RNA sequence: GGAUGUAACUCUGGAGAAACCCGCUUCAGUGCGGGGGCCGAAGGUGCAAAGUGCGCAGAGCGCACCAAUCUCUCAGGCAAAAGGACAGAGAAAGAUUU
Numbered sequence: 001g002g003a004u005g006u007a008a009c010u011c012u013g014g015a016g017a018a019a020c021c022c023g024c025u026u027c028a029g030u031g032c033g034g035g036g037g038c039c040g041a042a043g044g045u046g047c048a049a050a051g052u053g054c055g056c057a058g059a060g061c062g063c064a065c066c067a068a069u070c071u072c073u074c075a076g077g078c079a080a081a082a083g084g085a086c087a088g089a090g091a092a093a094g095a096u097u098u
Base pairs, nucleotide, nucleotide: 006093009090010089011088012087013086020035021034022033023032037078038077039076040074041073044072046070051065052064053063054062
RNA: Glycine riboswitch aptamer